[Rfam]
RNA sequence: AAUUAAGGAAGGCGGUCUAAGGAUGCAACAUCCUGUUGCAACAACCGGCAUCGUGUGCUGGCCCCAACGACGGCAUACCCGCAUCCUGCGGG
Number, nucleotide and partner (000 for none) at each position: 001a000002a000003u000004u000005a000006a000007g000008g000009a000010a000011g000012g074013c073014g000015g071016u070017c069018u000019a000020a000021g000022g000023a000024u000025g065026c000027a000028a000029c061030a000031u000032c000033c000034u000035g000036u000037u000038g000039c000040a000041a000042c000043a000044a000045c000046c000047g000048g000049c000050a000051u000052c000053g000054u000055g000056u000057g000058c000059u000060g000061g029062c000063c000064c000065c025066a000067a000068c000069g017070a016071c015072g000073g013074c012075a000076u000077a000078c092079c091080c090081g089082c088083a000084u000085c000086c000087u000088g082089c081090g080091g079092g078

The record is a 92-nucleotide RNA sequence from Sporosarcina sp. HYO08, which matches "Bacillaceae-1 RNA" in Rfam. It is annotated as a small RNA. NCBI's taxonomy places the organism under Bacteria, Bacillati, Bacilli, Caryophanales, Sporosarcina.